Rfam assigns this 75-nucleotide sequence from Strongyloides venezuelensis to the family "mir-252 microRNA precursor family". Pairs were carried over by alignment from the consensus structure, which was predicted with RNAalifold.
RNA sequence: UGAGACUUUUAAGUAGUAGUGCCGCAGGUUGGAAAUGUGAAAUCACAACCUCCACACCACUGCUUAAUAGAUUCU
Numbered sequence: 001u002g003a004g005a006c007u008u009u010u011a012a013g014u015a016g017u018a019g020u021g022c023c024g025c026a027g028g029u030u031g032g033a034a035a036u037g038u039g040a041a042a043u044c045a046c047a048a049c050c051u052c053c054a055c056a057c058c059a060c061u062g063c064u065u066a067a068u069a070g071a072u073u074c075u
Stems, first nucleotide, its partner, number of pairs: 002074003006070002010066008019057001024053001026051005